[Rfam]
Bacterial RNase P class A: a 394-nucleotide RNA from Zavarzinia compransoris.
The family's RNA type in Rfam is ribozyme.
Gene Ontology terms of the family: ribonuclease P activity, tRNA processing and dimeric ribonuclease P complex.
RNA sequence: UCAGAUGGCCGGGCGGCCGCCGCCGCGCAAGCGGGGGAGGAAAGUCCGGGCUCCACGGAAACACGGUGCCGGGUAACGCCCGGCGGGGGCGACCCCAGGGACAGUGCCACAGAGAGCAGACCGCCGGAACGCCGCGCCCUCGGGGGCGGCCGGCCGGCAAGGGUGAAAGGGUGCGGUAAGAGCGCACCGCGAGGCUGGCAACAGCAUCGGCAUGGUAAACCCCACCGGGAGCAAAACCAAAUAGGGGCGGCGCGCCGGCUUGCCGGCAGGAUCGUUUCCGAUCCGUCGCCCGGGUCGGUUGCUUGAGGCGGUCGGCAACGAUCGCCCUAGAGGAAUGGCCGCCGGCCGUGGUCCGCCACGGUCACAGAACCCGGCUUACAGGCCAUCUGACCUC
Numbered sequence: 001u002c003a004g005a006u007g008g009c010c011g012g013g014c015g016g017c018c019g020c021c022g023c024c025g026c027g028c029a030a031g032c033g034g035g036g037g038a039g040g041a042a043a044g045u046c047c048g049g050g051c052u053c054c055a056c057g058g059a060a061a062c063a064c065g066g067u068g069c070c071g072g073g074u075a076a077c078g079c080c081c082g083g084c085g086g087g088g089g090c091g092a093c094c095c096c097a098g099g100g101a102c103a104g105u106g107c108c109a110c111a112g113a114g115a116g117c118a119g120a121c122c123g124c125c126g127g128a129a130c131g132c133c134g135c136g137c138c139c140u141c142g143g144g145g146g147c148g149g150c151c152g153g154c155c156g157g158c159a160a161g162g163g164u165g166a167a168a169g170g171g172u173g174c175g176g177u178a179a180g181a182g183c184g185c186a187c188c189g190c191g192a193g194g195c196u197g198g199c200a201a202c203a204g205c206a207u208c209g210g211c212a213u214g215g216u217a218a219a220c221c222c223c224a225c226c227g228g229g230a231g232c233a234a235a236a237c238c239a240a241a242u243a244g245g246g247g248c249g250g251c252g253c254g255c256c257g258g259c260u261u262g263c264c265g266g267c268a269g270g271a272u273c274g275u276u277u278c279c280g281a282u283c284c285g286u287c288g289c290c291c292g293g294g295u296c297g298g299u300u301g302c303u304u305g306a307g308g309c310g311g312u313c314g315g316c317a318a319c320g321a322u323c324g325c326c327c328u329a330g331a332g333g334a335a336u337g338g339c340c341g342c343c344g345g346c347c348g349u350g351g352u353c354c355g356c357c358a359c360g361g362u363c364a365c366a367g368a369a370c371c372c373g374g375c376u377u378a379c380a381g382g383c384c385a386u387c388u389g390a391c392c393u394c
Stems, first nucleotide, its partner, number of pairs: 001390010011379001012343007020037002023034004042377003046374005051231004060277002064227005069083005084098001085096004099222002104220002106216003121162002123158005131150005170188006189211001190209003194205004235300004245291006269284005307326008